The family of this 194-nucleotide RNA from Vitis rotundifolia is "MIR159 microRNA precursor family". NCBI's taxonomy places the organism under Eukaryota, Streptophyta, rosids, Vitales, Vitis. The family's consensus secondary structure was predicted with WAR. The family has 66 seed sequences and 3,649 matches in Rfam 15.1.
[Rfam]
RNA sequence: UUGUGGAAGAAGGAGCUCUCUUUAGUCCAGUCCGAGACAGCUUCAAGGCUGAUACGUGGCUGCUGACUCGUUGCUUCAAGAACUCAUCACAUACGCCUGGAAAAGAUGAUGGUUUUUUGAUACAACGAUGCAGGAGCUGCGUUCAGUUAUGGCUGUCACGUCUUGGACUGAAGGGAGCUCCCUUGUAUUUCACA
Numbered sequence: 001u002u003g004u005g006g007a008a009g010a011a012g013g014a015g016c017u018c019u020c021u022u023u024a025g026u027c028c029a030g031u032c033c034g035a036g037a038c039a040g041c042u043u044c045a046a047g048g049c050u051g052a053u054a055c056g057u058g059g060c061u062g063c064u065g066a067c068u069c070g071u072u073g074c075u076u077c078a079a080g081a082a083c084u085c086a087u088c089a090c091a092u093a094c095g096c097c098u099g100g101a102a103a104a105g106a107u108g109a110u111g112g113u114u115u116u117u118u119g120a121u122a123c124a125a126c127g128a129u130g131c132a133g134g135a136g137c138u139g140c141g142u143u144c145a146g147u148u149a150u151g152g153c154u155g156u157c158a159c160g161u162c163u164u165g166g167a168c169u170g171a172a173g174g175g176a177g178c179u180c181c182c183u184u185g186u187a188u189u190u191c192a193c194a
Stems, first nucleotide, its partner, number of pairs: 013180008023170007036157001060136002063133003069127004077119001